This 146-nucleotide RNA from Ziziphus jujuba belongs to the Rfam family "small nucleolar RNA snoR134".
By type it is an H/ACA-box small nucleolar RNA.
Taxonomically the source falls in Ziziphus jujuba (Eukaryota, Embryophyta, Spermatophyta, Paliureae).
The family's consensus secondary structure was predicted with RNAalifold.
It scores 94 bits against the family's covariance model.

RNA sequence: CUGCACGAUGCACAAAGGGCUUCUCUGAGGAUCCCUGUGACGCCGUAAGCCCCAAUUGCUCGUGCUAGAACUCCGCCGUUUAGUGUUGCAGGUUUAGCUUUGUUCACAUUCCACGGCUGAUCUGUGUCAAAACAACGGCUACAUUU
Numbered sequence: 001c002u003g004c005a006c007g008a009u010g011c012a013c014a015a016a017g018g019g020c021u022u023c024u025c026u027g028a029g030g031a032u033c034c035c036u037g038u039g040a041c042g043c044c045g046u047a048a049g050c051c052c053c054a055a056u057u058g059c060u061c062g063u064g065c066u067a068g069a070a071c072u073c074c075g076c077c078g079u080u081u082a083g084u085g086u087u088g089c090a091g092g093u094u095u096a097g098c099u100u101u102g103u104u105c106a107c108a109u110u111c112c113a114c115g116g117c118u119g120a121u122c123u124g125u126g127u128c129a130a131a132a133c134a135a136c137g138g139c140u141a142c143a144u145u146u
Stems, first nucleotide, its partner, number of pairs: 003065006010059002017052005023045001025042001075139006084129002087126006097117003